This 120-nucleotide RNA from Luteimonas aestuarii belongs to the Rfam family "Glycine riboswitch aptamer". NCBI's taxonomy places the organism under Bacteria, Pseudomonadati, Lysobacterales, Lysobacteraceae, Luteimonas.
RNA sequence: CACCAACACUCUGGAGAGACCGACCGGCAUUGCCGGAACCGGCGCCGAAGGGGCACGAAGCAAGCGGAUCCUCGUCCCGCGCGCUUCCAAACUCUCAGGCAAAAGGACAGAGGGGCACGA
Numbered sequence: 001c002a003c004c005a006a007c008a009c010u011c012u013g014g015a016g017a018g019a020c021c022g023a024c025c026g027g028c029a030u031u032g033c034c035g036g037a038a039c040c041g042g043c044g045c046c047g048a049a050g051g052g053g054c055a056c057g058a059a060g061c062a063a064g065c066g067g068a069u070c071c072u073c074g075u076c077c078c079g080c081g082c083g084c085u086u087c088c089a090a091a092c093u094c095u096c097a098g099g100c101a102a103a104a105g106g107a108c109a110g111a112g113g114g115g116c117a118c119g120a
Stems, first nucleotide, its partner, number of pairs: 007114001009112005020042003044100003047096002051094003057087005